The record is an 88-nucleotide RNA from Hibiscus syriacus, which matches "Small nucleolar RNA snoR14" in Rfam.
The base pairs follow the family's consensus structure.
NCBI's taxonomy places the organism under Eukaryota, Streptophyta, rosids, Malvoideae, Hibiscus.

[Rfam]
RNA sequence: GCGACGUGAUGAUAGAAAUUCAGUGGUAUGCGAAUCCACUGAUAUUAAAGUUUGAUGUUAAUUUGAAGUUCCGACAGGUUCUGAUCGC
Numbered sequence: 001g002c003g004a005c006g007u008g009a010u011g012a013u014a015g016a017a018a019u020u021c022a023g024u025g026g027u028a029u030g031c032g033a034a035u036c037c038a039c040u041g042a043u044a045u046u047a048a049a050g051u052u053u054g055a056u057g058u059u060a061a062u063u064u065g066a067a068g069u070u071c072c073g074a075c076a077g078g079u080u081c082u083g084a085u086c087g088c
Stems, first nucleotide, its partner, number of pairs: 001088004

The family has 7 seed sequences and 668 matches in Rfam 15.1. Gene Ontology terms of the family: nucleolus and RNA processing. The literature on the family includes a 2001 paper in RNA by Brown et al., "Multiple snoRNA gene clusters from Arabidopsis". Its Rfam clan is "SNORD110 clan".